[Rfam]
This 114-nucleotide RNA sequence from Muribaculaceae bacterium Isolate-104 belongs to the Rfam family "SAM-I/IV (S-adenosyl methionine) riboswitch aptamer". Rfam links the family to the GO terms regulation of gene expression and S-adenosylmethionine metabolic process. Its Rfam clan is "SAM clan". A reference for the family is Weinberg et al. (2008), "The aptamer core of SAM-IV riboswitches mimics the ligand-binding site of SAM-I riboswitches", RNA. It scores 56 bits against the family's covariance model.
RNA sequence: CCUCAGUGUCAAGAGUCAGCCUUGAGGCUGCACCAACCGAGACUCACAUGACAGUCCACGGUGGUAGGAGAAAUCCAGACACGAUAGUAAGAAACUAUAAAAUAAAGAGUUAUG
Numbered sequence: 001c002c003u004c005a006g007u008g009u010c011a012a013g014a015g016u017c018a019g020c021c022u023u024g025a026g027g028c029u030g031c032a033c034c035a036a037c038c039g040a041g042a043c044u045c046a047c048a049u050g051a052c053a054g055u056c057c058a059c060g061g062u063g064g065u066a067g068g069a070g071a072a073a074u075c076c077a078g079a080c081a082c083g084a085u086a087g088u089a090a091g092a093a094a095c096u097a098u099a100a101a102a103u104a105a106a107g108a109g110u111u112a113u114g
Base pairs, nucleotide, nucleotide: 006082007081008080009079010078015031017030018029019028020027021026032065033064034063037061038060039059041056042055043054044053084098085097086096087095